The record is a 112-nucleotide sequence from Cavia porcellus, which matches "Y RNA" in Rfam.
[Rfam]
Nucleotides: 112
Stems, first nucleotide, its partner, number of pairs: 001108008010100002014096002016091006043073002
Number, partner (000 for none) and nucleotide at each position: 001108g002107g003106c004105u005104g006103g007102u008101c009000c010100g011099a012000a013000g014096g015095u016091a017090g018089u019088g020087a021086g022000u023000u024000a025000u026000c027000u028000c029000a030000a031000u032000u033000g034000a035000u036000u037000g038000u039000u040000c041000a042000c043073a044072g045000u046000c047000a048000g049000u050000a051000c052000a053000g054000a055000u056000u057000g058000a059000a060000c061000u062000c063000c064000u065000u066000g067000u068000u069000c070000u071000a072044c073043u074000c075000u076000u077000u078000c079000c080000c081000c082000c083000c084000u085000u086021c087020u088019c089018a090017c091016u092000a093000c094000u095015g096014c097000a098000c099011u100010u101008g102007a103006c104005u105004a106003g107002u108001c109000u110000u111000u112000u